[Rfam]
RNA sequence: UGGGAGACUGAUACACAAAUAGAGCUUAAAAAUCCGCUCUAAUUGUCACAAGUUCCUCCCUAUAGUAAAACUGCCUUCUGAUGACCGGGACGAAUUGAGGGAAAUUGUAACGGACAGAUACGGGGCAGACAACA
Numbered sequence: 001u002g003g004g005a006g007a008c009u010g011a012u013a014c015a016c017a018a019a020u021a022g023a024g025c026u027u028a029a030a031a032a033u034c035c036g037c038u039c040u041a042a043u044u045g046u047c048a049c050a051a052g053u054u055c056c057u058c059c060c061u062a063u064a065g066u067a068a069a070a071c072u073g074c075c076u077u078c079u080g081a082u083g084a085c086c087g088g089g090a091c092g093a094a095u096u097g098a099g100g101g102a103a104a105u106u107g108u109a110a111c112g113g114a115c116a117g118a119u120a121c122g123g124g125g126c127a128g129a130c131a132a133c134a
Stems, first nucleotide, its partner, number of pairs: 002060005007054001015046004022039004071128007085113003090108004
Overview: Shown here is a 134-nucleotide RNA from Pelodiscus sinensis, a member of the family "Small Cajal body specific RNA 8". A reference for the family is Darzacq et al. (2002), "Cajal body-specific small nuclear RNAs: a novel class of 2'-O-methylation and pseudouridylation guide RNAs", EMBO J. The family has 22 seed sequences and 955 matches in Rfam 15.1. The source organism's lineage runs through Eukaryota, Deuterostomia, Craniata, Euteleostomi and Pelodiscus. It scores 130 bits against the family's covariance model. It is annotated as a small Cajal body RNA. About the family: scaRNAs are a specific class of small nuclear RNAs which localise to the Cajal bodies and guide the modification of RNA polymerase II transcribed spliceosomal RNAs U1, U2, U4, U5 and U12.